[Rfam]
RNA sequence: GUAGAAGCUCCAUCUAUCAAUGGCUAAGACUCCGGUCUUAGUGCAUAGGAGUGAUUGAAAAAUAAAGGGGCAAUACCACCCUCUUGAUAGAACAAGAAGGUGAUUAUUGCUCCUUUAUU
Numbered sequence: 001g002u003a004g005a006a007g008c009u010c011c012a013u014c015u016a017u018c019a020a021u022g023g024c025u026a027a028g029a030c031u032c033c034g035g036u037c038u039u040a041g042u043g044c045a046u047a048g049g050a051g052u053g054a055u056u057g058a059a060a061a062a063u064a065a066a067g068g069g070g071c072a073a074u075a076c077c078a079c080c081c082u083c084u085u086g087a088u089a090g091a092a093c094a095a096g097a098a099g100g101u102g103a104u105u106a107u108u109g110c111u112c113c114u115u116u117a118u119u
Stems, first nucleotide, its partner, number of pairs: 010023004064116012080100001082097004

Description
Rfam assigns this 119-nucleotide sequence from Rhazya stricta to the family "Plastid-psbA-1 3UTR RNA". The sequence is in the family's curated seed alignment. By type it is a cis-regulatory element. About the family: Plastid psbA-1 is a non-coding RNA (ncRNA) present in plastids. It was identified in inverted repeat sequences in the 3 prime untranslate region (3UTR) of photosystem II quinone-binding protein (psbA). Taxonomically the source falls in Rhazya (Eukaryota, Embryophyta, Tracheophyta, Mesangiospermae). Pairs were carried over by alignment from the consensus structure, which was predicted with LocARNA.